This 70-nucleotide sequence belongs to the Rfam family "RAGATH-18 RNA". Rfam describes the family as follows. Actinobacteria, Firmicutes, Fusobacteria, Thermotogae (1 example).
[Rfam]
RNA sequence: CCUUUGGAGAAGUAUACAAACUAUAGUAGCUAUUCUUUGAAUGGUGAAAUAGGCUUUGGUGAAUUAGGAA
Dot-bracket structure: (((.....(((((.......(((.....(((.((.....)).)))....))))))))........)))..
Pairs were carried over by alignment from the consensus structure, which is taken from published work.